[Rfam]
RNA sequence: UGUUUAUGUCCCACUGUUCAAGCCUCCAAGCUGUGCCUUGGGUGGCUUUGGGGCAUGGACA
Numbered sequence: 001u002g003u004u005u006a007u008g009u010c011c012c013a014c015u016g017u018u019c020a021a022g023c024c025u026c027c028a029a030g031c032u033g034u035g036c037c038u039u040g041g042g043u044g045g046c047u048u049u050g051g052g053g054c055a056u057g058g059a060c061a
Stems, first nucleotide, its partner, number of pairs: 001061013020048005025042006031035001

Shown here is a 61-nucleotide RNA from Orthohepadnavirus hominoidei, a member of the family "HBV RNA encapsidation signal epsilon". The family's RNA type in Rfam is cis-regulatory element. Rfam links the family to the GO term viral genome replication. For this family Rfam cites "Hepatitis B virus replication" (Beck and Nassal, World J Gastroenterol, 2007). The organism belongs to Orthohepadnavirus hominoidei, within Viruses.